[Rfam]
RNA: DUF3800-VII RNA
RNA sequence: GAAAGAAUCUCGCCGGAGCACACGAGGGUGAUUCACCAGCACGCAUAGCGUGUGGUAGUCGUGCCGGGUGGUUCUUUCUUUUU
Numbered sequence: 001g002a003a004a005g006a007a008u009c010u011c012g013c014c015g016g017a018g019c020a021c022a023c024g025a026g027g028g029u030g031a032u033u034c035a036c037c038a039g040c041a042c043g044c045a046u047a048g049c050g051u052g053u054g055g056u057a058g059u060c061g062u063g064c065c066g067g068g069u070g071g072u073u074c075u076u077u078c079u080u081u082u083u
Stems, first nucleotide, its partner, number of pairs: 001078007011068001013067004021063005027037004040052004